[Rfam]
RNA sequence: CUGCUUUAAGUGAUGAAAAAUUCCGGAUGUUAACUCAUAUUGUCUCCGAGAGCGCAAAACCGUGUGGAGAUUUCCGUUGCCUUCCUUCUGAUUCCAAAGCU
Numbered sequence: 001c002u003g004c005u006u007u008a009a010g011u012g013a014u015g016a017a018a019a020a021u022u023c024c025g026g027a028u029g030u031u032a033a034c035u036c037a038u039a040u041u042g043u044c045u046c047c048g049a050g051a052g053c054g055c056a057a058a059a060c061c062g063u064g065u066g067g068a069g070a071u072u073u074c075c076g077u078u079g080c081c082u083u084c085c086u087u088c089u090g091a092u093u094c095c096a097a098a099g100c101u
Stems, first nucleotide, its partner, number of pairs: 003100003024076004